[Rfam]
RNA sequence: UUCCCUCCCGUGUCGGGGUUAGAGACACGGACCCUCCCUGUUGGAUCUGGCCGGGCCUCGUGCCCGGCCUUUUUU
Numbered sequence: 001u002u003c004c005c006u007c008c009c010g011u012g013u014c015g016g017g018g019u020u021a022g023a024g025a026c027a028c029g030g031a032c033c034c035u036c037c038c039u040g041u042u043g044g045a046u047c048u049g050g051c052c053g054g055g056c057c058u059c060g061u062g063c064c065c066g067g068c069c070u071u072u073u074u075u
Stems, first nucleotide, its partner, number of pairs: 008030007049069008
Overview: This 75-nucleotide RNA sequence from Cereibacter sphaeroides belongs to the Rfam family "Singlet oxygen resistance RNA X". The base pairs follow the family's consensus structure. From the family's description: SorX (RSs2461)like SorY is a singlet oxygen induced sRNA that counteracts oxidative stress by targeting mRNA for a transporter in Rhodobacter. It also has an impact on resistance against organic hydroperoxides. It targets SD sequence of potA mRNA via an aSD sequence. The aSD sequence and some neighbouring nucleotides are identical to the one of SorY (targets takP mRNA). NCBI's taxonomy places the organism under Bacteria, Pseudomonadati, Alphaproteobacteria, Cereibacter, Cereibacter sphaeroides. Gene Ontology term of the family: response to photooxidative stress.